Overview
This 46-nucleotide sequence from Toxostoma redivivum belongs to the Rfam family "Histone 3' UTR stem-loop". A reference for the family is Dominski and Marzluff (1999), "Formation of the 3' end of histone mRNA", Gene. Gene Ontology term of the family: mRNA 3'-end processing by stem-loop binding and cleavage. The base pairs follow the family's consensus structure, which is taken from published work. A search with the family's covariance model found it, with a score of 40 bits.
[Rfam]
RNA sequence: CCAAAGGCUCUUUUAAGAGCCACCACAUGCACCUUAAAAAGAGCUG
Numbered sequence: 001c002c003a004a005a006g007g008c009u010c011u012u013u014u015a016a017g018a019g020c021c022a023c024c025a026c027a028u029g030c031a032c033c034u035u036a037a038a039a040a041g042a043g044c045u046g
Base pairs, nucleotide, nucleotide: 006021007020008019009018010017011016